[Rfam]
RNA sequence: GAAUUCCUUACAGCAAUGACUCAUCUGAAACCCUUGGAUUCUG
Numbered sequence: 001g002a003a004u005u006c007c008u009u010a011c012a013g014c015a016a017u018g019a020c021u022c023a024u025c026u027g028a029a030a031c032c033c034u035u036g037g038a039u040u041c042u043g
Stems, first nucleotide, its partner, number of pairs: 001041006

Shown here is a 43-nucleotide RNA from Dictyostelium purpureum, a member of the family "Class I RNA from Dictyostelium".
Pairs were carried over by alignment from the consensus structure, which is taken from published work.
Dictyostelium Class I RNA was first reported for Aspegren et al. 2004 in Dictyostelium discoideum. Sucgang et al. 2011 identify putative homologs of Class I RNA in D. discoideum and D. purpureum.
The source organism's lineage runs through Eukaryota, Amoebozoa, Dictyostelia, Dictyosteliaceae and Dictyostelium.